RNA: GEBRO RNA
RNA sequence: AAAUAGCUUGCAGGGGCUAGAUAGAAUAAAUACAUUUAAGAUGAUACACUUCAGACCUGAAAGACGGUUGACAAAAGUAUCCGCACCCUGCUAACGGGUUACUCAAGCAGGAGGGCGAAAGUGGGUAUAAGUGAGGUGCUAGACCCCCAAAAAGUCCCCUCUAAAGGGACACAUCUAAGGACUAUUAUAGUCUAUGAUGAACGACACCAAGAGUUGGCUGAUAGCGACAUGAAAAGGACACGAACAGACACCGAAAGGAAAGCAGGUAGGGCAUGCAGACGCUUGUAGAAAGUUCGUUCAAAACUUGAAAUAGUUUUGAAGUUGUAACCC
Numbered sequence: 001a002a003a004u005a006g007c008u009u010g011c012a013g014g015g016g017c018u019a020g021a022u023a024g025a026a027u028a029a030a031u032a033c034a035u036u037u038a039a040g041a042u043g044a045u046a047c048a049c050u051u052c053a054g055a056c057c058u059g060a061a062a063g064a065c066g067g068u069u070g071a072c073a074a075a076a077g078u079a080u081c082c083g084c085a086c087c088c089u090g091c092u093a094a095c096g097g098g099u100u101a102c103u104c105a106a107g108c109a110g111g112a113g114g115g116c117g118a119a120a121g122u123g124g125g126u127a128u129a130a131g132u133g134a135g136g137u138g139c140u141a142g143a144c145c146c147c148c149a150a151a152a153a154g155u156c157c158c159c160u161c162u163a164a165a166g167g168g169a170c171a172c173a174u175c176u177a178a179g180g181a182c183u184a185u186u187a188u189a190g191u192c193u194a195u196g197a198u199g200a201a202c203g204a205c206a207c208c209a210a211g212a213g214u215u216g217g218c219u220g221a222u223a224g225c226g227a228c229a230u231g232a233a234a235a236g237g238a239c240a241c242g243a244a245c246a247g248a249c250a251c252c253g254a255a256a257g258g259a260a261a262g263c264a265g266g267u268a269g270g271g272c273a274u275g276c277a278g279a280c281g282c283u284u285g286u287a288g289a290a291a292g293u294u295c296g297u298u299c300a301a302a303a304c305u306u307g308a309a310a311u312a313g314u315u316u317u318g319a320a321g322u323u324g325u326a327a328c329c330c
Stems, first nucleotide, its partner, number of pairs: 043081005054069004087111006096330007136207003154170005172199004179193005240297006251258002262286006298319007